[Rfam]
RNA sequence: AUCAGCGGGGAAAGAAGACCCUGUUGAGCUUGACUCUAGUUUGACAUUGUGAAAAGGCAUGAAGGGUGUAGAAUAAGUGGGAGCUUCGGCGCCAGUGAAAUACCACUACCUCCAUCGUCUUUUGACUAAUGAAAGAAUUACUCCAAGUACAUUUUUUAAAAUUCAGAAACUGUCUAAUGGGGAGUUUGGCUGGGGCGGCACAUCUGUUAAAUAAUAACGCAGAUGUCCUAAGGGGGGCUCAUGGAGAACAGAAAUCUCCAGUAGAAUAAAAGGGUAAAAGCCCCCUUGAUUUUGAUUUUCAGUGUGAUUACAAACCAUGAAAGUGUGGCCUAUCGAUCCUUUAUGUUUACCUCCGAAUUUGAGGCUAGAGGUGCCAGAAAAGUUACCACAGGGAUAACUGGCUUGUGGCAGUCAAGCGUUCAUAGCGACAUUGCUUUUUGAUUCUUCGAUGUCGGCUCUUCCUAUCAUACCGAAGCAGAAUUCGGUAAGCGUUGGAUUGUUCACCCACUAAUAGGGAACGUGAGCUGGGUUUAGACCGUCGUGAGACAGGUUAGUUUUACCCUACUGAUGGAUG
Numbered sequence: 001a002u003c004a005g006c007g008g009g010g011a012a013a014g015a016a017g018a019c020c021c022u023g024u025u026g027a028g029c030u031u032g033a034c035u036c037u038a039g040u041u042u043g044a045c046a047u048u049g050u051g052a053a054a055a056g057g058c059a060u061g062a063a064g065g066g067u068g069u070a071g072a073a074u075a076a077g078u079g080g081g082a083g084c085u086u087c088g089g090c091g092c093c094a095g096u097g098a099a100a101u102a103c104c105a106c107u108a109c110c111u112c113c114a115u116c117g118u119c120u121u122u123u124g125a126c127u128a129a130u131g132a133a134a135g136a137a138u139u140a141c142u143c144c145a146a147g148u149a150c151a152u153u154u155u156u157u158a159a160a161a162u163u164c165a166g167a168a169a170c171u172g173u174c175u176a177a178u179g180g181g182g183a184g185u186u187u188g189g190c191u192g193g194g195g196c197g198g199c200a201c202a203u204c205u206g207u208u209a210a211a212u213a214a215u216a217a218c219g220c221a222g223a224u225g226u227c228c229u230a231a232g233g234g235g236g237g238c239u240c241a242u243g244g245a246g247a248a249c250a251g252a253a254a255u256c257u258c259c260a261g262u263a264g265a266a267u268a269a270a271a272g273g274g275u276a277a278a279a280g281c282c283c284c285c286u287u288g289a290u291u292u293u294g295a296u297u298u299u300c301a302g303u304g305u306g307a308u309u310a311c312a313a314a315c316c317a318u319g320a321a322a323g324u325g326u327g328g329c330c331u332a333u334c335g336a337u338c339c340u341u342u343a344u345g346u347u348u349a350c351c352u353c354c355g356a357a358u359u360u361g362a363g364g365c366u367a368g369a370g371g372u373g374c375c376a377g378a379a380a381a382g383u384u385a386c387c388a389c390a391g392g393g394a395u396a397a398c399u400g401g402c403u404u405g406u407g408g409c410a411g412u413c414a415a416g417c418g419u420u421c422a423u424a425g426c427g428a429c430a431u432u433g434c435u436u437u438u439u440g441a442u443u444c445u446u447c448g449a450u451g452u453c454g455g456c457u458c459u460u461c462c463u464a465u466c467a468u469a470c471c472g473a474a475g476c477a478g479a480a481u482u483c484g485g486u487a488a489g490c491g492u493u494g495g496a497u498u499g500u501u502c503a504c505c506c507a508c509u510a511a512u513a514g515g516g517a518a519c520g521u522g523a524g525c526u527g528g529g530u531u532u533a534g535a536c537c538g539u540c541g542u543g544a545g546a547c548a549g550g551u552u553a554g555u556u557u558u559a560c561c562c563u564a565c566u567g568a569u570g571g572a573u574g
Base pairs, nucleotide, nucleotide: 001569002568003567004566005565008563009562010561012558013557020392021391022390023389025388026387027384028383029382030381031380033185034184035183036182040177041176043174044173045172046171049126050125052123053122054121055120056119057118058117059115060114061113063111064110065109076107077106078105079104080103083090084089130165131164132163133162139149140148141147142146188201189199190198191197202224203223204222205221206220207219227328228327233285234284235283236282237281238280239265240264242260243259244258245257246256247255266275267274290314291313292312295309297307298306316325317324318323339370340369341368342367343366350364351363352362353361401442403440405439407435408434409433410432411431412430416426417425453528454526455525456524457523458520459517460516461515462514463513466491469486470485471484472483473482474481493507494506495505497503534552535551536550537549538547539546540545

The record is a 574-nucleotide part of an RNA from Metschnikowia cubensis, which matches "Eukaryotic large subunit ribosomal RNA" in Rfam. NCBI's taxonomy places the organism under Eukaryota, Opisthokonta, Dikarya, Ascomycota, Metschnikowia. Rfam's curators put it in the seed alignment.